[Rfam]
RNA sequence: UGUCUCCUCCACCGCCCCUGGGUGGAUUUCAAGCCCCUGGCCACAAGCCAGGGGCUUUUUUU
Number, nucleotide and partner (000 for none) at each position: 001u000002g000003u000004c000005u000006c000007c000008u026009c025010c024011a023012c022013c021014g000015c000016c000017c000018c000019u000020g000021g013022g012023u011024g010025g009026a008027u000028u000029u000030c000031a000032a000033g055034c054035c053036c052037c051038u050039g049040g048041c000042c000043a000044c000045a000046a000047g000048c040049c039050a038051g037052g036053g035054g034055c033056u000057u000058u000059u000060u000061u000062u000
This 62-nucleotide RNA from Paucibacter sp. KBW04 belongs to the Rfam family "Betaproteobacteria toxic small RNA". Rfam describes the family as follows. Overexpression in amino aid rich medium attenuates growth, suggesting role in repressing amino acid intake and metabolism. Taxonomically the source falls in Roseateles (Bacteria, Pseudomonadati, Pseudomonadota, Burkholderiales).